[Rfam]
A member of the RNA family "Small nucleolar RNA SNORA81" from Conger conger, 185 nucleotides long.
Rfam 15.1 lists 1,161 matches to the family in 643 species.
By type it is an H/ACA-box small nucleolar RNA.

RNA sequence: CCCUUCUUGCUAAAGCACUCUGCUAGAAUUGUGAGAUCUAAGCCUUGUUUGGCUUAGUUCUUGUGAUGAUGAAAGCCAGAGUACACCCAGGAAGGAGAGUAAUUGCACAGUAUUGGCAAUGAGACCCUGGUGGACCUCUUUCUUAAUGUCCAGUGCCUUUAGUCUCGAGAUCCUGUGCAACAACC
Numbered sequence: 001c002c003c004u005u006c007u008u009g010c011u012a013a014a015g016c017a018c019u020c021u022g023c024u025a026g027a028a029u030u031g032u033g034a035g036a037u038c039u040a041a042g043c044c045u046u047g048u049u050u051g052g053c054u055u056a057g058u059u060c061u062u063g064u065g066a067u068g069a070u071g072a073a074a075g076c077c078a079g080a081g082u083a084c085a086c087c088c089a090g091g092a093a094g095g096a097g098a099g100u101a102a103u104u105g106c107a108c109a110g111u112a113u114u115g116g117c118a119a120u121g122a123g124a125c126c127c128u129g130g131u132g133g134a135c136c137u138c139u140u141u142c143u144u145a146a147u148g149u150c151c152a153g154u155g156c157c158u159u160u161a162g163u164c165u166c167g168a169g170a171u172c173c174u175g176u177g178c179a180a181c182a183a184c185c
Stems, first nucleotide, its partner, number of pairs: 018081002021078001022076003028070004034061002038057007104179007112171001129154001131152004